[Rfam]
RNA sequence: GUUCCAUCAAGAGCGACUGAGGGACAGGCCCUGUGACGUCGCAGCAACCUUCAAUAUUGAAAGGUGCUAAUUCCUACAGUAUGUAUGCUGGGAGAUGGGUU
Numbered sequence: 001g002u003u004c005c006a007u008c009a010a011g012a013g014c015g016a017c018u019g020a021g022g023g024a025c026a027g028g029c030c031c032u033g034u035g036a037c038g039u040c041g042c043a044g045c046a047a048c049c050u051u052c053a054a055u056a057u058u059g060a061a062a063g064g065u066g067c068u069a070a071u072u073c074c075u076a077c078a079g080u081a082u083g084u085a086u087g088c089u090g091g092g093a094g095a096u097g098g099g100u101u
Stems, first nucleotide, its partner, number of pairs: 001101001003099006013042005021031003026075003043068004048064002050061004072093001077090005
About this RNA
The record is a 101-nucleotide RNA from Megasphaera cerevisiae, which matches "SAM riboswitch aptamer (S box leader)" in Rfam.